[Rfam]
RNA: raiA RNA
RNA sequence: UCCGCCCGGGUCCGUGGUUGCGCAGCACCACGCGGGUGCGAGCCCGACGUGGUGGAGCAAGCCGAUGCCAGUCGCAGGCGAAACGGUCCACGUAAGUCGCUGUCCGCAGCGAUGAUCACGGUGCGGCUUAGCAGUAAGCCCUGCCUCGGCCCGGACGCCAGAUGUGUCCGACGUCGGGAGAAGGUGGGUAGUGGCACCAAGCUGCGAGAGCCUCAGCAGGCGGGUGUGGGGUCGAAGACCAGGUCGGCCGGGCGGA
Numbered sequence: 001u002c003c004g005c006c007c008g009g010g011u012c013c014g015u016g017g018u019u020g021c022g023c024a025g026c027a028c029c030a031c032g033c034g035g036g037u038g039c040g041a042g043c044c045c046g047a048c049g050u051g052g053u054g055g056a057g058c059a060a061g062c063c064g065a066u067g068c069c070a071g072u073c074g075c076a077g078g079c080g081a082a083a084c085g086g087u088c089c090a091c092g093u094a095a096g097u098c099g100c101u102g103u104c105c106g107c108a109g110c111g112a113u114g115a116u117c118a119c120g121g122u123g124c125g126g127c128u129u130a131g132c133a134g135u136a137a138g139c140c141c142u143g144c145c146u147c148g149g150c151c152c153g154g155a156c157g158c159c160a161g162a163u164g165u166g167u168c169c170g171a172c173g174u175c176g177g178g179a180g181a182a183g184g185u186g187g188g189u190a191g192u193g194g195c196a197c198c199a200a201g202c203u204g205c206g207a208g209a210g211c212c213u214c215a216g217c218a219g220g221c222g223g224g225u226g227u228g229g230g231g232u233c234g235a236a237g238a239c240c241a242g243g244u245c246g247g248c249c250g251g252g253c254g255g256a
Stems, first nucleotide, its partner, number of pairs: 001256009012247003015241005065227003068078001070128007087121002092116001095113001097112005119234001140220005145178005182213004191205005